The family of this 85-nucleotide RNA from Methylomonas sp. is "c-di-GMP-I-GGC riboswitch aptamer". Taxonomically the source falls in Methylomonas (Bacteria, Pseudomonadati, Pseudomonadota, Methylococcales). Gene Ontology term of the family: cyclic-di-GMP binding. Clan: c-di-GMP_I riboswitch clan. Pairs were carried over by alignment from the consensus structure, which is taken from published work.
RNA sequence: CAGCAAAAUGGCAAACCCAUCGAAAGGUGGGGACGCAAAGUCACCGAUCCAUGACAAUUUGUCAGGGACAGCGGGAUUACCAGAG
Numbered sequence: 001c002a003g004c005a006a007a008a009u010g011g012c013a014a015a016c017c018c019a020u021c022g023a024a025a026g027g028u029g030g031g032g033a034c035g036c037a038a039a040g041u042c043a044c045c046g047a048u049c050c051a052u053g054a055c056a057a058u059u060u061g062u063c064a065g066g067g068a069c070a071g072c073g074g075g076a077u078u079a080c081c082a083g084a085g
Base pairs, nucleotide, nucleotide: 001085011036012035016031017030018029019028020027021026034071039078040077041076042075044074045073046072048068049067